The family of this 113-nucleotide RNA from Nomascus leucogenys is "Y RNA". Taxonomically the source falls in Nomascus (Eukaryota, Metazoa, Dipnotetrapodomorpha, Tetrapoda). By type it is a non-coding RNA gene. A search with the family's covariance model found it, with a score of 69 bits.
RNA sequence: GGCUGGUCCGAACGUACUGAGUUACUUCAAAUGACUAUUCAAAAACAUUAACAGACAGAAUUUCUCAUUGUACUCUUUCCUCCCUUCUCACUACUGCACUUGACUAGUCUUAA
Numbered sequence: 001g002g003c004u005g006g007u008c009c010g011a012a013c014g015u016a017c018u019g020a021g022u023u024a025c026u027u028c029a030a031a032u033g034a035c036u037a038u039u040c041a042a043a044a045a046c047a048u049u050a051a052c053a054g055a056c057a058g059a060a061u062u063u064c065u066c067a068u069u070g071u072a073c074u075c076u077u078u079c080c081u082c083c084c085u086u087c088u089c090a091c092u093a094c095u096g097c098a099c100u101u102g103a104c105u106a107g108u109c110u111u112a113a
Stems, first nucleotide, its partner, number of pairs: 001109008010101002014097002016092001018090004044074001047071002